[Rfam]
Rfam assigns this 127-nucleotide RNA sequence from Desulfitobacterium dichloroeliminans to the family "Molybdenum/Tungsten riboswitch aptamer (Moco RNA motif)".
RNA sequence: AUACGUUUUAUGCUCCGAAGCUGGCGGCCUAAUGUUUUACGAUGGUUGUCCAGACAGUGUGAAAGCACCGGGUAUGACUGGAAACGGCCAUGCCUCCCAUUUGGAAAGGAGUCUGUAGGGAAUGCGG
Numbered sequence: 001a002u003a004c005g006u007u008u009u010a011u012g013c014u015c016c017g018a019a020g021c022u023g024g025c026g027g028c029c030u031a032a033u034g035u036u037u038u039a040c041g042a043u044g045g046u047u048g049u050c051c052a053g054a055c056a057g058u059g060u061g062a063a064a065g066c067a068c069c070g071g072g073u074a075u076g077a078c079u080g081g082a083a084a085c086g087g088c089c090a091u092g093c094c095u096c097c098c099a100u101u102u103g104g105a106a107a108g109g110a111g112u113c114u115g116u117a118g119g120g121a122a123u124g125c126g127g
Stems, first nucleotide, its partner, number of pairs: 004120001006118001012112005023050007033041003058067002070095007078087003096104002
The base pairs follow the family's consensus structure, which is taken from published work. Taxonomically the source falls in Desulfitobacterium dichloroeliminans (Bacteria, Bacillota, Desulfitobacteriaceae, Desulfitobacterium).